[Rfam]
RNA sequence: GGUAUUCCUUAUUUAUUUCUAAUGGUUUAUUUGGAGUCCAUCUUCUAAUGCUUUAACACAAGGGUAAAGCACACGCCCUGGUGAAGAACAGAAAGAUAGGCCCAUCAGUUUAGUUGCCGCUAAUAAUUCUCAA
Number, nucleotide and partner (000 for none) at each position: 001g118002g117003u116004a115005u000006u000007c000008c000009u000010u000011a000012u000013u000014u000015a000016u000017u000018u000019c000020u000021a000022a109023u107024g106025g105026u000027u000028u000029a000030u000031u000032u000033g000034g103035a000036g101037u100038c099039c000040a097041u096042c095043u000044u000045c000046u091047a000048a000049u088050g000051c086052u085053u084054u083055a082056a000057c000058a000059c000060a000061a000062g000063g000064g000065u000066a000067a000068a000069g000070c000071a000072c000073a000074c000075g000076c000077c000078c000079u000080g000081g000082u055083g054084a053085a052086g051087a000088a049089c000090a000091g046092a000093a000094a000095g042096a041097u040098a000099g038100g037101c036102c000103c034104a000105u025106c024107a023108g000109u022110u000111u000112a000113g000114u000115u004116g003117c002118c001119g000120c000121u000122a000123a000124u000125a000126a000127u000128u000129c000130u000131c000132a000133a000